Background
The family of this 92-nucleotide RNA sequence from Streptococcus intermedius is "Cia-dependent small RNA csRNA1". The pairing is the family consensus, mapped onto this sequence. Taxonomically the source falls in Streptococcus intermedius (Bacteria, Bacillota, Streptococcaceae, Streptococcus).
RNA sequence: AUCAAAUGAAGACCUCCUAACUUUAUUUGAUGAAAUCCUAAACUUUUUCAUAAUAAUCUCCCUAUAAAGAUCACCAAAAGGUGAUCUUUUUG
Number, nucleotide and partner (000 for none) at each position: 001a031002u030003c029004a028005a027006a026007u025008g024009a023010a022011g021012a000013c000014c000015u000016c000017c000018u000019a000020a000021c011022u010023u009024u008025a007026u006027u005028u004029g003030a002031u001032g000033a000034a000035a000036u000037c000038c000039u000040a000041a000042a000043c000044u000045u000046u000047u000048u000049c000050a000051u000052a000053a000054u000055a000056a000057u000058c000059u000060c000061c000062c000063u000064a000065u000066a089067a088068a087069g086070a085071u084072c083073a082074c081075c000076a000077a000078a000079a000080g000081g074082u073083g072084a071085u070086c069087u068088u067089u066090u000091u000092g000